[Rfam]
Source information
mir-989 microRNA precursor family: a 90-nucleotide RNA sequence from Culex quinquefasciatus. The family has 9 seed sequences and 57 matches in Rfam 15.1.
RNA sequence: GUCAUGGGGAAACGCCGCUACCUCGCUUUCACUUGGUGGCCAUAGAUUUCGAUAUCCCAUGUGAUGUGACGUAGUGGUACCUUCCCUUGG
Numbered sequence: 001g002u003c004a005u006g007g008g009g010a011a012a013c014g015c016c017g018c019u020a021c022c023u024c025g026c027u028u029u030c031a032c033u034u035g036g037u038g039g040c041c042a043u044a045g046a047u048u049u050c051g052a053u054a055u056c057c058c059a060u061g062u063g064a065u066g067u068g069a070c071g072u073a074g075u076g077g078u079a080c081c082u083u084c085c086c087u088u089g090g
Base pairs, nucleotide, nucleotide: 003089004088006086007085008084009083010082015077016076017075018074019073020072021071023069024068025067026066029064030063031062032061034059035058036057